[Rfam]
Nucleotides: 111
Base pairs, nucleotide, nucleotide: 006105007104008103010101011100012099013061014060015059016058019053020052021051022050023049024048028041029040030039031038032037063096064095066093067092068091071088072087073086074085075084
Number, partner (000 for none) and nucleotide at each position: 001000g002000u003000c004000a005000c006105c007104g008103c009000c010101g011100g012099a013061c014060a015059g016058g017000a018000a019053c020052g021051g022050u023049c024048u025000c026000g027000a028041g029040g030039g031038u032037u033000g034000g035000g036000g037032a038031g039030c040029c041028c042000a043000g044000u045000g046000a047000c048024g049023g050022a051021u052020c053019g054000c055000a056000u057000u058016u059015c060014u061013g062000a063096g064095a065000c066093g067092g068091c069000g070000u071088c072087a073086g074085g075084u076000c077000a078000u079000a080000g081000g082000g083000a084075g085074c086073c087072u088071g089000g090000c091068g092067u093066c094000a095064u096063c097000g098000u099012u100011c101010c102000a103008g104007c105006g106000a107000a108000g109000g110000a111000g